TPP riboswitch aptamer (THI element): a 114-nucleotide sequence from Mycobacterium dioxanotrophicus. It scores 55 bits against the family's covariance model. Rfam describes the family as follows. Vitamin B(1) in its active form thiamin pyrophosphate (TPP) is an essential coenzyme that is synthesised by coupling of pyrimidine and thiazole moieties in bacteria. The previously detected thiamin-regulatory element, thi box was extended, resulting in a new, highly conserved RNA secondary structure, the THI element, which is widely distributed in eubacteria and also occurs in some archaea. Analysis of operon structures identified a large number of new candidate thiamin-regulated genes, mostly transporters, in various prokaryotic organisms.
RNA sequence: AACAGGCAACACGGGAGUCCCGGGAGCGGGGGCUGAGAGUGGGCAUACGUACCAGCCCUUACCGUCACACCUGAUCCGGGUCAUGCCGGCGAAGGGAGGAGAUGAAAUGGCCCC
Numbered sequence: 001a002a003c004a005g006g007c008a009a010c011a012c013g014g015g016a017g018u019c020c021c022g023g024g025a026g027c028g029g030g031g032g033c034u035g036a037g038a039g040u041g042g043g044c045a046u047a048c049g050u051a052c053c054a055g056c057c058c059u060u061a062c063c064g065u066c067a068c069a070c071c072u073g074a075u076c077c078g079g080g081u082c083a084u085g086c087c088g089g090c091g092a093a094g095g096g097a098g099g100a101g102a103u104g105a106a107a108u109g110g111c112c113c114c
Base pairs, nucleotide, nucleotide: 007101010098011065012064013063014062016059017033018032019031020030021029041058042057043056044055070095071094072093076089077088078087079086